The family of this 102-nucleotide sequence from Oceanivirga miroungae is "Purine riboswitch aptamer". Its family is annotated with purine nucleobase biosynthetic process in the Gene Ontology. For this family Rfam cites "Structure of a natural guanine-responsive riboswitch complexed with the metabolite hypoxanthine" (Batey et al., Nature, 2004). Taxonomically the source falls in Oceanivirga (Bacteria, Fusobacteriati, Fusobacteriota, Fusobacteriia). The base pairs follow the family's consensus structure, which is taken from published work.
[Rfam]
RNA sequence: UAGAAUACGGGUAGGUUGUUCCGUAUAAUCUUUCUAAUAUGGUGAAAGAGUUUCUACACAGAUGCCGUAAAUAUCUGUACUACUAAGAGAUAAAAAAUCUCU
Dot-bracket structure: ..................((..(((...((((((.........))))))........(((((((.......)))))))..)))..))...............
Numbered sequence: 001u002a003g004a005a006u007a008c009g010g011g012u013a014g015g016u017u018g019u020u021c022c023g024u025a026u027a028a029u030c031u032u033u034c035u036a037a038u039a040u041g042g043u044g045a046a047a048g049a050g051u052u053u054c055u056a057c058a059c060a061g062a063u064g065c066c067g068u069a070a071a072u073a074u075c076u077g078u079a080c081u082a083c084u085a086a087g088a089g090a091u092a093a094a095a096a097a098u099c100u101c102u
Stems, first nucleotide, its partner, number of pairs: 019087002023083003029049006058078007